[Rfam]
RNA sequence: UGGAUGUGACAGAUAGGCAGUGCAUUGCUAGCUGGCUGUUAAGAUUUUUCAUUUUAGCAGUUGCUAGUUGCACUCCUCUCUGUUGCAAUCA
Dot-bracket structure: (((.(((((((((.(((.((((((..((((((.(.......((..........)).....).))))))))))))))).))))))))).)))
Annotation
Shown here is a 91-nucleotide RNA sequence from Cavia porcellus, a member of the family "mir-449 microRNA precursor family". The family has 41 seed sequences and 325 matches in Rfam 15.1. The base pairs follow the family's consensus structure, which was predicted with RNAalifold. A reference for the family is Linsen et al. (2010), "Small RNA expression and strain specificity in the rat", BMC Genomics. Its family is annotated with miRNA-mediated post-transcriptional gene silencing and RISC complex in the Gene Ontology.